[Rfam]
RNA sequence: GGGGACCUUCGGGGCCCUAUACCCAUGGCGGAUACGUCCGCCCAACAUAGCGGGUCGUCAAAGACCUGCACUUGCUAACGGAAGACAGAAA
Numbered sequence: 001g002g003g004g005a006c007c008u009u010c011g012g013g014g015c016c017c018u019a020u021a022c023c024c025a026u027g028g029c030g031g032a033u034a035c036g037u038c039c040g041c042c043c044a045a046c047a048u049a050g051c052g053g054g055u056c057g058u059c060a061a062a063g064a065c066c067u068g069c070a071c072u073u074g075c076u077a078a079c080g081g082a083a084g085a086c087a088g089a090a091a
Stems, first nucleotide, its partner, number of pairs: 001018004006014003027069001029068003036065002

L2-Alphaproteobacteria ribosomal protein leader: a 91-nucleotide RNA. Pairs were carried over by alignment from the consensus structure, which is taken from published work. It is annotated as a cis-regulatory leader.